[Rfam]
RNA: L20-Deltaproteobacteria ribosomal protein leader
RNA sequence: GUCCGUGAACUGGGGGGAACUGUCUCCCCCUCCAGAUCCGGCAGCGGGAUCACCCGCCUAUUUUUGUCCAGAAGGAG
Numbered sequence: 001g002u003c004c005g006u007g008a009a010c011u012g013g014g015g016g017g018a019a020c021u022g023u024c025u026c027c028c029c030c031u032c033c034a035g036a037u038c039c040g041g042c043a044g045c046g047g048g049a050u051c052a053c054c055c056g057c058c059u060a061u062u063u064u065u066g067u068c069c070a071g072a073a074g075g076a077g
Base pairs, nucleotide, nucleotide: 003041004040005039007038008037010035011034012033013032014031015030016029017028